[Rfam]
RNA: HIF-1 alpha IRES
RNA sequence: CUCGUCCGAGGGGACGCGGAGCAUCGCCUCGUCGCCGCUGCAGUCAGUCGCCCGGCCGGGCCUUGACAAGCUGCCGGAGGGGAGGCUCCUCUGAGCCCGUCCCGGAGUCCCGCGGCUGCCGCCGGUUCCUCCAGCGUCUGGUCUCACGAGGGGCUGCGCACCGCUGGACGCGCCUCUCCUUCUCUCCCCGCGCGCGGAGAGAGCGAGCUUAGGCCGCAGCGAGCCUGGGGGGCGCCGGCCGUGAAGGCAUCGCGGCGACCGAUUCGCCAUG
Numbered sequence: 001c002u003c004g005u006c007c008g009a010g011g012g013g014a015c016g017c018g019g020a021g022c023a024u025c026g027c028c029u030c031g032u033c034g035c036c037g038c039u040g041c042a043g044u045c046a047g048u049c050g051c052c053c054g055g056c057c058g059g060g061c062c063u064u065g066a067c068a069a070g071c072u073g074c075c076g077g078a079g080g081g082g083a084g085g086c087u088c089c090u091c092u093g094a095g096c097c098c099g100u101c102c103c104g105g106a107g108u109c110c111c112g113c114g115g116c117u118g119c120c121g122c123c124g125g126u127u128c129c130u131c132c133a134g135c136g137u138c139u140g141g142u143c144u145c146a147c148g149a150g151g152g153g154c155u156g157c158g159c160a161c162c163g164c165u166g167g168a169c170g171c172g173c174c175u176c177u178c179c180u181u182c183u184c185u186c187c188c189c190g191c192g193c194g195c196g197g198a199g200a201g202a203g204c205g206a207g208c209u210u211a212g213g214c215c216g217c218a219g220c221g222a223g224c225c226u227g228g229g230g231g232g233c234g235c236c237g238g239c240c241g242u243g244a245a246g247g248c249a250u251c252g253c254g255g256c257g258a259c260c261g262a263u264u265c266g267c268c269a270u271g
Stems, first nucleotide, its partner, number of pairs: 001013003016032003020029001034061003085154003089151001129150003171205002174203004183198003215238001219235003